Shown here is a 79-nucleotide RNA sequence, a member of the family "CyVA-1 RNA". From the family's description: Cyanobacteria, Acidobacteria (1 example), Verrucomicrobia (1 example). The sequence is in the family's curated seed alignment.
RNA sequence: GCACUGGAUUGGACGUUUUGCCGCUGUGGUUCAUUCGUUGCACAUCGAAGGAGAGCGACGUCAGAUGUGCAAACGGUGC
Number, nucleotide and partner (000 for none) at each position: 001g079002c078003a077004c076005u075006g074007g000008a000009u000010u033011g032012g031013a030014c000015g000016u000017u000018u000019u000020g000021c000022c000023g000024c000025u000026g000027u000028g000029g000030u013031u012032c011033a010034u000035u000036c000037g000038u000039u071040g070041c069042a068043c067044a066045u065046c064047g000048a000049a000050g000051g000052a000053g000054a000055g000056c000057g000058a000059c000060g000061u000062c000063a000064g046065a045066u044067g043068u042069g041070c040071a039072a000073a000074c006075g005076g004077u003078g002079c001

About this RNA:
By type it is a small RNA.